RNA sequence: UCGUAAAAAUGAAGAAACUAGUUGCGGAUGUUAGAGCCAAAGGCUCAUUUUCCGAGAGCGCAUAACCCCAUGUGGAUUAUUCCGCUGCCUUCCUUCUGAUUUUUUCC
Numbered sequence: 001u002c003g004u005a006a007a008a009a010u011g012a013a014g015a016a017a018c019u020a021g022u023u024g025c026g027g028a029u030g031u032u033a034g035a036g037c038c039a040a041a042g043g044c045u046c047a048u049u050u051u052c053c054g055a056g057a058g059c060g061c062a063u064a065a066c067c068c069c070a071u072g073u074g075g076a077u078u079a080u081u082c083c084g085c086u087g088c089c090u091u092c093c094u095u096c097u098g099a100u101u102u103u104u105u106c107c
Stems, first nucleotide, its partner, number of pairs: 003106001005104001025084004

The record is a 107-nucleotide sequence from Collybiopsis confluens, which matches "Small nucleolar RNA Z13/snr52" in Rfam. The match comes from Rfam's covariance-model search (59 bits). By type it is a C/D-box small nucleolar RNA. Rfam links the family to the GO terms nucleolus and RNA processing. The organism belongs to Collybiopsis, within Eukaryota.